[Rfam]
Rfam assigns this 546-nucleotide part of an RNA from Pseudovirgaria hyperparasitica to the family "Eukaryotic large subunit ribosomal RNA". It scores 2813 bits against the family's covariance model. The family has 88 seed sequences and 107,465 matches in Rfam 15.1. Gene Ontology terms of the family: structural constituent of ribosome and ribosome. The family's consensus secondary structure is taken from published work.
RNA sequence: GGGAAUCUAACUAUCUAAUUAAAAUAUAGUAUUACGAUAGUCGUAAAACGAUAUUAACGUAAUAUAAUUUCUACCUAGUACUCUAAAUAUUAAAGUAAAGAAAUUUAACUAAGCGCGGGUAAACGGCGGGAGUAACUAUGACUUGACCUUAAAGAGGGUUAUAAAAGAAGUUAUUUAAUAACUUCUAGUACUAGGCGUUACUUAGUAUAACACUAUUAAAGUACGGGGAGUUUCUAAAGCCUCUAUCACCACGGCUAUCUUAAAAGAGAUAGUAUAGUACUCUAGGGUAGUACCUAGGGGGAUGGUAAUAGUAUAGAGAAUGUUAUAAUGGAUAAUCCGCAGCUAAGCGCUACUAAUAGCUUAGCUAUUCAUGCGUGCAGUUUAACGACUAAAUGGUAGUGGGUUCUAUCUUCUAUAGAAGAUAGUACUUAAGAUAUAGUCUCCGCCUAGAGUUAAAAAAUAUAGGGAUAAAGAGCUCUUAAGGUAGCCAAAUGCCUUAUUAUCUAAUUAGUAACGCGCAUAAAUAGAUUAACGAGAUUCCUACUA
Numbered sequence: 001g002g003g004a005a006u007c008u009a010a011c012u013a014u015c016u017a018a019u020u021a022a023a024a025u026a027u028a029g030u031a032u033u034a035c036g037a038u039a040g041u042c043g044u045a046a047a048a049c050g051a052u053a054u055u056a057a058c059g060u061a062a063u064a065u066a067a068u069u070u071c072u073a074c075c076u077a078g079u080a081c082u083c084u085a086a087a088u089a090u091u092a093a094a095g096u097a098a099a100g101a102a103a104u105u106u107a108a109c110u111a112a113g114c115g116c117g118g119g120u121a122a123a124c125g126g127c128g129g130g131a132g133u134a135a136c137u138a139u140g141a142c143u144u145g146a147c148c149u150u151a152a153a154g155a156g157g158g159u160u161a162u163a164a165a166a167g168a169a170g171u172u173a174u175u176u177a178a179u180a181a182c183u184u185c186u187a188g189u190a191c192u193a194g195g196c197g198u199u200a201c202u203u204a205g206u207a208u209a210a211c212a213c214u215a216u217u218a219a220a221g222u223a224c225g226g227g228g229a230g231u232u233u234c235u236a237a238a239g240c241c242u243c244u245a246u247c248a249c250c251a252c253g254g255c256u257a258u259c260u261u262a263a264a265a266g267a268g269a270u271a272g273u274a275u276a277g278u279a280c281u282c283u284a285g286g287g288u289a290g291u292a293c294c295u296a297g298g299g300g301g302a303u304g305g306u307a308a309u310a311g312u313a314u315a316g317a318g319a320a321u322g323u324u325a326u327a328a329u330g331g332a333u334a335a336u337c338c339g340c341a342g343c344u345a346a347g348c349g350c351u352a353c354u355a356a357u358a359g360c361u362u363a364g365c366u367a368u369u370c371a372u373g374c375g376u377g378c379a380g381u382u383u384a385a386c387g388a389c390u391a392a393a394u395g396g397u398a399g400u401g402g403g404u405u406c407u408a409u410c411u412u413c414u415a416u417a418g419a420a421g422a423u424a425g426u427a428c429u430u431a432a433g434a435u436a437u438a439g440u441c442u443c444c445g446c447c448u449a450g451a452g453u454u455a456a457a458a459a460a461u462a463u464a465g466g467g468a469u470a471a472a473g474a475g476c477u478c479u480u481a482a483g484g485u486a487g488c489c490a491a492a493u494g495c496c497u498u499a500u501u502a503u504c505u506a507a508u509u510a511g512u513a514a515c516g517c518g519c520a521u522a523a524a525u526a527g528a529u530u531a532a533c534g535a536g537a538u539u540c541c542u543a544c545u546a
Stems, first nucleotide, its partner, number of pairs: 001542007008534001012026003029065008040052004069528002074126002078124002080120004088115001090113001096107004128478003133475001479483001500514004